This 117-nucleotide RNA sequence from Brassica napus belongs to the Rfam family "mir-172 microRNA precursor family". The family's consensus secondary structure was predicted with PFOLD. The match comes from Rfam's covariance-model search (71 bits). About the family: mir-172 has been experimentally verified in Arabidopsis thaliana. This family is thought to target mRNAs coding for APETALA2-like transcription factors.

[Rfam]
RNA sequence: UUGGUUGUUGAUGCAGCAUCAUCAAGAUUCUCAUAUACAUAUCAGAACCCUAAUUAAUAUAAUUUAGGGUUUUUUCAAUUUCCAUGUGAAUCUUAAUGGUGCUGCACCUACAGAAAA
Numbered sequence: 001u002u003g004g005u006u007g008u009u010g011a012u013g014c015a016g017c018a019u020c021a022u023c024a025a026g027a028u029u030c031u032c033a034u035a036u037a038c039a040u041a042u043c044a045g046a047a048c049c050c051u052a053a054u055u056a057a058u059a060u061a062a063u064u065u066a067g068g069g070u071u072u073u074u075u076c077a078a079u080u081u082c083c084a085u086g087u088g089a090a091u092c093u094u095a096a097u098g099g100u101g102c103u104g105c106a107c108c109u110a111c112a113g114a115a116a117a
Stems, first nucleotide, its partner, number of pairs: 010108001012106011024094007032086002